[Rfam]
RNA sequence: GGUCCCCUGGUCUAAAGGUCAGGACACCGGCCUUUCAAGCCGGAGGUAUUGGGUUCAAGUCCCAUGGGGAUCA
Numbered sequence: 001g002g003u004c005c006c007c008u009g010g011u012c013u014a015a016a017g018g019u020c021a022g023g024a025c026a027c028c029g030g031c032c033u034u035u036c037a038a039g040c041c042g043g044a045g046g047u048a049u050u051g052g053g054u055u056c057a058a059g060u061c062c063c064a065u066g067g068g069g070a071u072c073a
Stems, first nucleotide, its partner, number of pairs: 001072007010025004027043005050064004
Record summary: Rfam assigns this 73-nucleotide RNA from Acetatifactor muris to the family "tRNA". The base pairs follow the family's consensus structure, which is taken from published work. About the family: Transfer RNA (tRNA) molecules are approximately 80 nucleotides in length.